[Rfam]
Nucleotides: 073
Base pairs, nucleotide, nucleotide: 011061013060014059015058022052023051024050025049026048027047028046029045030044
Number, partner (000 for none) and nucleotide at each position: 001000u002000g003000u004000g005000g006000u007000u008000g009000a010000a011061u012000u013060g014059a015058c016000c017000a018000a019000u020000u021000g022052u023051a024050g025049g026048g027047a028046g029045u030044c031000c032000u033000u034000u035000u036000g037000c038000c039000u040000a041000a042000g043000c044030g045029a046028c047027u048026c049025c050024c051023u052022a053000a054000u055000u056000g057000c058015g059014u060013c061011g062000a063000u064000u065000u066000a067000c068000c069000u070000a071000c072000a073000u

Record summary: This 73-nucleotide RNA sequence from Manduca sexta belongs to the Rfam family "mir-929 microRNA precursor family". The literature on the family includes a 2010 paper in Genome Biol Evol by Marco et al., "Functional shifts in insect microRNA evolution". NCBI's taxonomy places the organism under Eukaryota, Protostomia, Neolepidoptera, Sphingidae, Manduca.